[Rfam]
RNA sequence: CCCUCGCUCAACAAAUCGCUAUUCGAAGCUUUCAAACAGAGACGCUCUGCCCCUUGGGCAGCGCGUCUCACAAGGCUACACAAAAACUUUGCUUUGGGUGAAAGUCCCCGGACGUCUCCAUUCUGGAGCCUGCGGAAACGCGCCGCCAUAGAAGCACUGCGGCUGACCUUUUGCACCUUGGCCCUUUCGUCAUGGACAACCUGCCCUGCCUAUCGCUGCAUCCGCUGUGCCUACUUCCUUCUCUCCAAGAAACCAAUCCAAGCUUUGCGUCUCUUGAACCAUAUGGACGAAGAUAUGAGUCCGCGUCGGGAUGGUGCAAGCGGGGAUCUUCUUGUCGCGGAAGCCAGUAGAAGCUGUGGAAUGAUGGGUGGCCGUGUGGUGGCAUGUCUUGCGGUAUCGGGUGCUGAGGAUUUGUUGUCGAGAUUGAUAGGUAUGCGAUUGCUUUGGUUGCUCUUGCGCCAAGGUUACUCGAUGGGGCUUAUUCUUGAGGCGAGG
Numbered sequence: 001c002c003c004u005c006g007c008u009c010a011a012c013a014a015a016u017c018g019c020u021a022u023u024c025g026a027a028g029c030u031u032u033c034a035a036a037c038a039g040a041g042a043c044g045c046u047c048u049g050c051c052c053c054u055u056g057g058g059c060a061g062c063g064c065g066u067c068u069c070a071c072a073a074g075g076c077u078a079c080a081c082a083a084a085a086a087c088u089u090u091g092c093u094u095u096g097g098g099u100g101a102a103a104g105u106c107c108c109c110g111g112a113c114g115u116c117u118c119c120a121u122u123c124u125g126g127a128g129c130c131u132g133c134g135g136a137a138a139c140g141c142g143c144c145g146c147c148a149u150a151g152a153a154g155c156a157c158u159g160c161g162g163c164u165g166a167c168c169u170u171u172u173g174c175a176c177c178u179u180g181g182c183c184c185u186u187u188c189g190u191c192a193u194g195g196a197c198a199a200c201c202u203g204c205c206c207u208g209c210c211u212a213u214c215g216c217u218g219c220a221u222c223c224g225c226u227g228u229g230c231c232u233a234c235u236u237c238c239u240u241c242u243c244u245c246c247a248a249g250a251a252a253c254c255a256a257u258c259c260a261a262g263c264u265u266u267g268c269g270u271c272u273c274u275u276g277a278a279c280c281a282u283a284u285g286g287a288c289g290a291a292g293a294u295a296u297g298a299g300u301c302c303g304c305g306u307c308g309g310g311a312u313g314g315u316g317c318a319a320g321c322g323g324g325g326a327u328c329u330u331c332u333u334g335u336c337g338c339g340g341a342a343g344c345c346a347g348u349a350g351a352a353g354c355u356g357u358g359g360a361a362u363g364a365u366g367g368g369u370g371g372c373c374g375u376g377u378g379g380u381g382g383c384a385u386g387u388c389u390u391g392c393g394g395u396a397u398c399g400g401g402u403g404c405u406g407a408g409g410a411u412u413u414g415u416u417g418u419c420g421a422g423a424u425u426g427a428u429a430g431g432u433a434u435g436c437g438a439u440u441g442c443u444u445u446g447g448u449u450g451c452u453c454u455u456g457c458g459c460c461a462a463g464g465u466u467a468c469u470c471g472a473u474g475g476g477g478c479u480u481a482u483u484c485u486u487g488a489g490g491c492g493a494g495g
Base pairs, nucleotide, nucleotide: 002495003494004493005492006491007490008488009487010486011485014440015439016438017437018436019435023097024096025095026094027093028092029091039069040068041067042066043065044064045063102480103479104478106477107476108475109474131142132141133140134139255412256411257410263408264407265406267404268403273401274400275399276398285389286388287387288386372382373381374380375379442464443463444462445461446460447459
The family of this 495-nucleotide RNA sequence from Claviceps purpurea is "RNase MRP". From the family's description: RNase MRP is an enzymatically active ribonucleoprotein with two distinct roles in eukaryotes. The organism belongs to Claviceps purpurea, within Eukaryota. It scores 102 bits against the family's covariance model.